[Rfam]
RNA sequence: AAACCUCUGACGAGAUCCGUGUAUGUUU
Dot-bracket structure: ((((...(.(((.....)))..).))))
Description:
The record is a 28-nucleotide sequence from Moheibacter sediminis, which matches "L19-Flavobacteria ribosomal protein leader" in Rfam. The family's RNA type in Rfam is cis-regulatory leader. NCBI's taxonomy places the organism under Bacteria, Pseudomonadati, Flavobacteriia, Flavobacteriales, Moheibacter. Pairs were carried over by alignment from the consensus structure, which is taken from published work. The match comes from Rfam's covariance-model search (36 bits). For this family Rfam cites "Discovery of 20 novel ribosomal leader candidates in bacteria and archaea" (Eckert and Weinberg, BMC Microbiol, 2020).